[Rfam]
RNA sequence: CCAGCACUUUCACAGGUCCUCAUUUAGUCAGUGGAGCCAGGUUUUGGUAGCUGGUGCUAACAGGAAAGCCUUGAUUACAUCCUUGCCCUGAUACUAUACCAGUGGCAGCUGUCUGUCAAGGGAACAGAG
Numbered sequence: 001c002c003a004g005c006a007c008u009u010u011c012a013c014a015g016g017u018c019c020u021c022a023u024u025u026a027g028u029c030a031g032u033g034g035a036g037c038c039a040g041g042u043u044u045u046g047g048u049a050g051c052u053g054g055u056g057c058u059a060a061c062a063g064g065a066a067a068g069c070c071u072u073g074a075u076u077a078c079a080u081c082c083u084u085g086c087c088c089u090g091a092u093a094c095u096a097u098a099c100c101a102g103u104g105g106c107a108g109c110u111g112u113c114u115g116u117c118a119a120g121g122g123a124a125c126a127g128a129g
Base pairs, nucleotide, nucleotide: 003058004057005056006055007054008053013046014045015044018041019040020039023035024034025033069122070121071119072118073117074116079112080111083108084107085106086105087104088102089101090100
Small nucleolar RNA SNORA30/SNORA37 family: a 129-nucleotide RNA sequence from Nannospalax galili.
The members of this family belong to the H/ACA class of snoRNAs that guide the sites of modification of uridines to pseudouridines. This family includes human ACA30 (SNORA30), ACA37 (SNORA37) and the mouse homolog MBI-26. Both ACA37 and ACA30 are predicted to guide the pseudouridylation of residue U4643 of 28S rRNA.
The organism belongs to Nannospalax, within Eukaryota.
Rfam links the family to the GO terms nucleolus and RNA processing.
It scores 108 bits against the family's covariance model.